About this RNA
Bacillaceae-1 RNA: a 67-nucleotide RNA sequence from Oceanobacillus indicireducens. The match comes from Rfam's covariance-model search (52 bits).
RNA sequence: CCUGCAGGAGGCCGGCUAAGUACGGUCACGUCCUGUGACCAAUGCCGGCAUUAGAACUUCCUGUUCG
Numbered sequence: 001c002c003u004g005c006a007g008g009a010g011g012c013c014g015g016c017u018a019a020g021u022a023c024g025g026u027c028a029c030g031u032c033c034u035g036u037g038a039c040c041a042a043u044g045c046c047g048g049c050a051u052u053a054g055a056a057c058u059u060c061c062u063g064u065u066c067g
Stems, first nucleotide, its partner, number of pairs: 011049006025039005054066004